Background: TPP riboswitch aptamer (THI element): a 100-nucleotide sequence from Weissella paramesenteroides. Pairs were carried over by alignment from the consensus structure, which is taken from published work. Its family is annotated with thiamine pyrophosphate binding in the Gene Ontology.

[Rfam]
RNA sequence: AAUAUUUACUAGGGGAGCCCUUUAUGGCUGAGACGUUAAUUAACGGACCCUUUGAACCUGUUUAGUUAGUACUAACGAAGGAAAGUAAUGGUCAAUGCGA
Number, nucleotide and partner (000 for none) at each position: 001a000002a000003u000004a000005u000006u088007u087008a086009c085010u084011a051012g050013g049014g048015g000016a000017g028018c027019c026020c000021u000022u000023u000024a000025u000026g019027g018028c017029u000030g000031a000032g000033a000034c000035g044036u043037u042038a000039a000040u000041u000042a037043a036044c035045g000046g000047a000048c014049c013050c012051u011052u000053u000054g000055a000056a000057c081058c080059u079060g000061u000062u075063u074064a073065g072066u000067u000068a000069g000070u000071a000072c065073u064074a063075a062076c000077g000078a000079a059080g058081g057082a000083a000084a010085g009086u008087a007088a006089u000090g000091g000092u000093c000094a000095a000096u000097g000098c000099g000100a000